[Rfam]
RNA sequence: GAUCCGUCCUCGGGGGGCCGCGCUUGAGCGGCUGAGAGGCGGGUGAGCCCGCGACCCGUAGAACCUGAUCCGGGUCAUGCCGGCGAAGGGAACGGACCGUUCGUACGGA
Numbered sequence: 001g002a003u004c005c006g007u008c009c010u011c012g013g014g015g016g017g018c019c020g021c022g023c024u025u026g027a028g029c030g031g032c033u034g035a036g037a038g039g040c041g042g043g044u045g046a047g048c049c050c051g052c053g054a055c056c057c058g059u060a061g062a063a064c065c066u067g068a069u070c071c072g073g074g075u076c077a078u079g080c081c082g083g084c085g086a087a088g089g090g091a092a093c094g095g096a097c098c099g100u101u102c103g104u105a106c107g108g109a
Stems, first nucleotide, its partner, number of pairs: 006097004011058004017032005039052005064089003070083004
Dot-bracket structure: .....((((.((((..(((((......)))))......(((((....)))))..)))).....(((...((((......))))...)))....))))............
Notes:
Rfam assigns this 109-nucleotide sequence from Alphaproteobacteria bacterium PA2 to the family "TPP riboswitch aptamer (THI element)". Rfam's curators write: Vitamin B(1) in its active form thiamin pyrophosphate (TPP) is an essential coenzyme that is synthesised by coupling of pyrimidine and thiazole moieties in bacteria. A search with the family's covariance model found it, with a score of 73 bits.